The family of this 73-nucleotide RNA from Kluyveromyces lactis is "tRNA".
The source organism's lineage runs through Eukaryota, Dikarya, Saccharomycetes, Saccharomycetaceae and Kluyveromyces.
Rfam classes the family as a transfer RNA.
It is one of the family's seed sequences.
Rfam links the family to the GO term triplet codon-amino acid adaptor activity.
[Rfam]
RNA sequence: UGAAUCGUAGACUAAUAGGUAAGUCACCAAAAUUUGAGUUUGGAAUUUGUUUGUUCGAAUCAAACCGGUUCAA
Numbered sequence: 001u002g003a004a005u006c007g008u009a010g011a012c013u014a015a016u017a018g019g020u021a022a023g024u025c026a027c028c029a030a031a032a033u034u035u036g037a038g039u040u041u042g043g044a045a046u047u048u049g050u051u052u053g054u055u056c057g058a059a060u061c062a063a064a065c066c067g068g069u070u071c072a073a
Stems, first nucleotide, its partner, number of pairs: 001072007010025004027043005049065005